Source information: Lysine riboswitch aptamer: a 204-nucleotide sequence from Falsibacillus albus.

RNA sequence: CGAUGGGGUAGAGGUGCAGGGUUCAAGAGUAUGCUGUCUUGAGGAUGACAACAGUGAAAGCAGCAGAAAGGGAAUUUUGCCGAAGUAAAAUCAAUGAGUCGACAUUGUUUUUACUGGGGUUGCCUUUAAUAAGGGCAGCACUGUCAUUAUGGGGAAAAACAGUUGGCACCGGGCCAAUCCUCAUAAUGGGGAGCUACAGAUCGU
Numbered sequence: 001c002g003a004u005g006g007g008g009u010a011g012a013g014g015u016g017c018a019g020g021g022u023u024c025a026a027g028a029g030u031a032u033g034c035u036g037u038c039u040u041g042a043g044g045a046u047g048a049c050a051a052c053a054g055u056g057a058a059a060g061c062a063g064c065a066g067a068a069a070g071g072g073a074a075u076u077u078u079g080c081c082g083a084a085g086u087a088a089a090a091u092c093a094a095u096g097a098g099u100c101g102a103c104a105u106u107g108u109u110u111u112u113a114c115u116g117g118g119g120u121u122g123c124c125u126u127u128a129a130u131a132a133g134g135g136c137a138g139c140a141c142u143g144u145c146a147u148u149a150u151g152g153g154g155a156a157a158a159a160c161a162g163u164u165g166g167c168a169c170c171g172g173g174c175c176a177a178u179c180c181u182c183a184u185a186a187u188g189g190g191g192a193g194c195u196a197c198a199g200a201u202c203g204u
Stems, first nucleotide, its partner, number of pairs: 008197004016080009032065006039058001084115007092107004116142002119139008144189012